The record is a 73-nucleotide sequence from Myotis lucifugus, which matches "mir-9223 microRNA precursor family" in Rfam. It scores 78 bits against the family's covariance model. The family's consensus secondary structure was predicted with RNAalifold. The family has 9 seed sequences and 14,641 matches in Rfam 15.1.
RNA sequence: GGCGGUUCUCAGGUGACACACCCUGGAAUCGGGCUCCUUUCUCUGGUUCUGGGUGUGUCACCCGAGAACCACA
Number, nucleotide and partner (000 for none) at each position: 001g000002g072003c000004g000005g069006u068007u067008c066009u065010c064011a000012g062013g061014u060015g059016a058017c057018a000019c055020a054021c053022c052023c051024u000025g050026g049027a048028a047029u046030c045031g044032g043033g042034c000035u000036c000037c000038u000039u000040u000041c000042u033043c032044u031045g030046g029047u028048u027049c026050u025051g023052g022053g021054u020055g019056u000057g017058u016059c015060a014061c013062c012063c000064g010065a009066g008067a007068a006069c005070c000071a000072c002073a000